[Rfam]
RNA sequence: AAUCACUGAUCCAACCUCUUGCCCGAUGCCCGGGCAUGGCCCGAAGGCCAUCGCCUCAGGAUCCCCCGACGU
Number, nucleotide and partner (000 for none) at each position: 001a000002a000003u000004c000005a000006c000007u071008g070009a000010u000011c000012c000013a000014a000015c000016c000017u000018c039019u038020u036021g035022c000023c033024c032025g031026a000027u000028g000029c000030c000031c025032g024033g023034g000035c021036a020037u000038g019039g018040c000041c000042c000043g000044a000045a000046g000047g000048c000049c000050a000051u069052c068053g067054c000055c000056u000057c000058a000059g000060g000061a000062u000063c000064c000065c000066c000067c053068g052069a051070c008071g007072u000
The record is a 72-nucleotide RNA from Pseudomonas fluorescens, which matches "Pseudomonas sRNA P10" in Rfam.
It is annotated as a small RNA.
A reference for the family is Livny et al. (2006), "Identification of 17 Pseudomonas aeruginosa sRNAs and prediction of sRNA-encoding genes in 10 diverse pathogens using the bioinformatic tool sRNAPredict2", Nucleic Acids Res.
Rfam 15.1 lists 62 matches to the family in 42 species.